[Rfam]
RNA sequence: GCCGGUCCUCGGUAGUGGCCCGCGGAGCCUCGCUCCGCAGGCCUCCAUCGAAGAUCGCA
Dot-bracket structure: ..(((((.(((((...((((.(((((((...))))))).))))...))))).)))))..
Notes
This 59-nucleotide sequence from Pengzhenrongella sicca belongs to the Rfam family "Actino-pnp RNA". Taxonomically the source falls in Pengzhenrongella (Bacteria, Bacillati, Actinomycetota, Actinomycetes). The family's consensus secondary structure is taken from published work. Rfam classes the family as a cis-regulatory element.